[Rfam]
RNA sequence: AUACUUACCUGGACGGGGUCGACGGAUGAUCAGGAAGACCCGUGGCCUAGGAAGACCCGUGGCCUAGGCUAGUGGCCCACAUUGCACAUGGUGGGUGCGCUGGCUUACCAUCUCCCCAAGCGGAGAGUGGACGUCAUAAUUUGUGGUUGAGGGGGUACGCGUUCGCGUGGCCCCUG
Dot-bracket structure: ...........((((((((((.(((.(...........................).)))))))))(((.(.(((..((((..........)).))..)))..)))).((((((.((.....))))).))).))))...............(((((..((((....)))).))))).
Shown here is a 176-nucleotide sequence from Aegilops tauschii, a member of the family "U1 spliceosomal RNA". Pairs were carried over by alignment from the consensus structure, which is taken from published work. The match comes from Rfam's covariance-model search (112 bits). The organism belongs to Aegilops tauschii, within Eukaryota. The family's RNA type in Rfam is spliceosomal small nuclear RNA.